[Rfam]
RNA: mir-1 microRNA precursor family
RNA sequence: AUGCCAUAACAUACUUCUUUAGAAUUCCAUACUGAAUCUCCGCAACUCUAUGGAAUGUAAAGAAGUAUGUAUUGAAACU
Dot-bracket structure: .....(..(((((((((((((.(...(((((.................)))))..).)))))))))))))..)......
Numbered sequence: 001a002u003g004c005c006a007u008a009a010c011a012u013a014c015u016u017c018u019u020u021a022g023a024a025u026u027c028c029a030u031a032c033u034g035a036a037u038c039u040c041c042g043c044a045a046c047u048c049u050a051u052g053g054a055a056u057g058u059a060a061a062g063a064a065g066u067a068u069g070u071a072u073u074g075a076a077a078c079u
Stems, first nucleotide, its partner, number of pairs: 006073001009070013023056001027053005